L31-Actinobacteria ribosomal protein leader: a 45-nucleotide RNA sequence. The match comes from Rfam's covariance-model search (36 bits). Its Rfam clan is "Ribosomal Protein L31 Leader clan".
[Rfam]
RNA sequence: UCGGUCCCGGUUCACGUGCGGCACUCCAGUCGCCGACCCGGUGCC
Numbered sequence: 001u002c003g004g005u006c007c008c009g010g011u012u013c014a015c016g017u018g019c020g021g022c023a024c025u026c027c028a029g030u031c032g033c034c035g036a037c038c039c040g041g042u043g044c045c
Base pairs, nucleotide, nucleotide: 003045004044005043007041008040009039010038015035016034018033019032020031021030022029

Rfam classes the family as a cis-regulatory leader.
The base pairs follow the family's consensus structure, which is taken from published work.